[Rfam]
RNA sequence: GUAUUUUAUGUUGUACAAGCCCUACAGCAUAACUUUAGUACUAAACUACCUUUAAUGCCAUUAUGUAAUUCGUACAUUACUGCUAGCCAACAUGUAUAAUAUAUA
Dot-bracket structure: ....(.(((((.(....((...((.((.....)).))((..(((.......)))..))....(((((.....)))))..)).....)..))))).).........

This 105-nucleotide sequence from Cercocebus atys belongs to the Rfam family "Mitochondrial DNA control region secondary structure A".
The family's RNA type in Rfam is antisense RNA.
It scores 67 bits against the family's covariance model.